[Rfam]
RNA sequence: ACGUACUUCAGUACGCUGCGGUUCCUGCGCGCUGGCCGGACACGGCUGAGGCCUGCUCGCUACGCCCUCUGAGCC
Numbered sequence: 001a002c003g004u005a006c007u008u009c010a011g012u013a014c015g016c017u018g019c020g021g022u023u024c025c026u027g028c029g030c031g032c033u034g035g036c037c038g039g040a041c042a043c044g045g046c047u048g049a050g051g052c053c054u055g056c057u058c059g060c061u062a063c064g065c066c067c068u069c070u071g072a073g074c075c
Base pairs, nucleotide, nucleotide: 002015003014004013005012006011019034020033021032022031024029046073047072049070050069051068
A member of the RNA family "Xanthomonas sRNA sX9" from Pseudomonas cavernae, 75 nucleotides long. It scores 61 bits against the family's covariance model. A reference for the family is Schmidtke et al. (2011), "Genome-wide transcriptome analysis of the plant pathogen Xanthomonas identifies sRNAs with putative virulence functions", Nucleic Acids Res. Pairs were carried over by alignment from the consensus structure, which was predicted with RNAalifold. The organism belongs to Pseudomonas, within Bacteria. The family's RNA type in Rfam is small RNA.